Shown here is a 68-nucleotide sequence from Solibacillus sp. R5-41, a member of the family "Bacillaceae-1 RNA". Pairs were carried over by alignment from the consensus structure, which is taken from published work.
RNA sequence: CGCACAGGAUGUUUGCCUAUGUCCGUCGCAUCCAUGUGACAACGGCUAACUGACCUGCAUCGUGCAGG
Number, nucleotide and partner (000 for none) at each position: 001c000002g000003c000004a000005c000006a000007g000008g000009a000010u000011g050012u049013u048014u000015g046016c045017c044018u000019a000020u000021g000022u000023c000024c000025g040026u039027c038028g037029c036030a000031u000032c000033c000034a000035u000036g029037u028038g027039a026040c025041a000042a000043c000044g017045g016046c015047u000048a013049a012050c011051u000052g000053a000054c068055c067056u066057g065058c064059a000060u000061c000062g000063u000064g058065c057066a056067g055068g054
Taxonomically the source falls in Solibacillus (Bacteria, Bacilli, Caryophanales, Caryophanaceae).